[Rfam]
RNA sequence: ACACUAGUGUACAGAAUCAUUACCACGUCUAUAGUAGGGUACACAUAACUAUCUAUAGAUAUAGAA
Numbered sequence: 001a002c003a004c005u006a007g008u009g010u011a012c013a014g015a016a017u018c019a020u021u022a023c024c025a026c027g028u029c030u031a032u033a034g035u036a037g038g039g040u041a042c043a044c045a046u047a048a049c050u051a052u053c054u055a056u057a058g059a060u061a062u063a064g065a066a
Base pairs, nucleotide, nucleotide: 007044008043009042010041011040012039028061029058030057031056032055033054034053
Coronavirus 3' UTR pseudoknot: a 66-nucleotide RNA sequence from Alphacoronavirus ratti.
Lineage of the source: Viruses > Pisoniviricetes > Cornidovirineae > Luchacovirus > Alphacoronavirus ratti.
Coronaviruses are plus-strand RNA viruses with ~30kb genomes. The 3' UTR region of coronavirus genomes contains a conserved ~55nt pseudoknot structure which has been shown to be necessary for viral genome replication.
Rfam's curators put it in the seed alignment.
Gene Ontology term of the family: viral genome replication.